This 184-nucleotide RNA sequence from Vibrio caribbeanicus belongs to the Rfam family "Lysine riboswitch aptamer". The match comes from Rfam's covariance-model search (120 bits). Gene Ontology term of the family: lysine biosynthetic process.
[Rfam]
RNA sequence: UCUCGCGGUAGAGGUGCGAAAUAAAUGAGUAUGUAUUGUUAGGGUGAUGCCAAAGAGCAGUAUAGAAAGGUUAUUUUGCCGAAGCGGCUUAAUCUCAUCAUGGAAAGUCGUUGGGGUUAGACUCGACAAGGGCUAACACUGCCAUAGUUUAUAAAUUGUUACACUAUGGAGCGCUACUGUAGGG
Numbered sequence: 001u002c003u004c005g006c007g008g009u010a011g012a013g014g015u016g017c018g019a020a021a022u023a024a025a026u027g028a029g030u031a032u033g034u035a036u037u038g039u040u041a042g043g044g045u046g047a048u049g050c051c052a053a054a055g056a057g058c059a060g061u062a063u064a065g066a067a068a069g070g071u072u073a074u075u076u077u078g079c080c081g082a083a084g085c086g087g088c089u090u091a092a093u094c095u096c097a098u099c100a101u102g103g104a105a106a107g108u109c110g111u112u113g114g115g116g117u118u119a120g121a122c123u124c125g126a127c128a129a130g131g132g133c134u135a136a137c138a139c140u141g142c143c144a145u146a147g148u149u150u151a152u153a154a155a156u157u158g159u160u161a162c163a164c165u166a167u168g169g170a171g172c173g174c175u176a177c178u179g180u181a182g183g184g
Stems, first nucleotide, its partner, number of pairs: 006179006016079009032064008083112008093102001113140002116137005122131002142169007